[Rfam]
Glycine riboswitch aptamer: a 108-nucleotide RNA from Mycobacterium tuberculosis.
RNA sequence: CAACUCUGGAGACAGGGACGGUCGCACCGACCGUGCCUGACCGAAGGUGUAGAGCGGCGCCAUGAUGCGACGCCGCAGACUCUCAGGUUUCAGGACAGAGCGGGGAGG
Numbered sequence: 001c002a003a004c005u006c007u008g009g010a011g012a013c014a015g016g017g018a019c020g021g022u023c024g025c026a027c028c029g030a031c032c033g034u035g036c037c038u039g040a041c042c043g044a045a046g047g048u049g050u051a052g053a054g055c056g057g058c059g060c061c062a063u064g065a066u067g068c069g070a071c072g073c074c075g076c077a078g079a080c081u082c083u084c085a086g087g088u089u090u091c092a093g094g095a096c097a098g099a100g101c102g103g104g105g106a107g108g
Stems, first nucleotide, its partner, number of pairs: 001103001004100005015038003040088003043084002047082001049080001054076006